[Rfam]
RNA sequence: UUGUGCUAAGCGGGGAGCUGGCGGUGCCCUGUACCUGCAAUCCGCCAUAGCAGGGCUUAAUUCCCCAGCCGAGGCUUAGAGAUGUAACGCAGCCCUGUAUAGUGCAAUGUUGAUAGCAAGGCCUUACGCGGCGGCGCUAUCGUGAACCCCGCCAGGACCGGAAGGUAGCAACGGUAAGCGGUCAGACCGGGUGCCGUAAGUCUCCCUUGCAGGAGUUGCACUUACAGAAAGCGGUUGUAUCUCUAUUGUCGAAGCUGGGGUGCACGA
Dot-bracket structure: ((((((.((((((((.(((...))).))))...(((((...........)))))))))....(((((((...(((...((((((((((...((.(((((...((.(((.....(.((((((.(((((((..(((....(((((.....(((.....(((....))).....)))...)))))....))).)...))))))....)))))).)..))).))..)))))...)).))))))))))....)))...))))))).))))))

Shown here is a 267-nucleotide sequence from Thermodesulfobium narugense, a member of the family "Bacterial large signal recognition particle RNA".
Pairs were carried over by alignment from the consensus structure, which is taken from published work.
For this family Rfam cites "SRPDB: Signal Recognition Particle Database" (Rosenblad et al., Nucleic Acids Res, 2003).
Its family is annotated with SRP-dependent cotranslational protein targeting to membrane, signal sequence recognition and signal recognition particle, plasma membrane targeting in the Gene Ontology.
The signal recognition particle (SRP) is a universally conserved ribonucleoprotein involved in the co-translational targeting of proteins to membranes.
Lineage of the source: Bacteria > Pseudomonadati > Thermodesulfobiia > Thermodesulfobium > Thermodesulfobium narugense.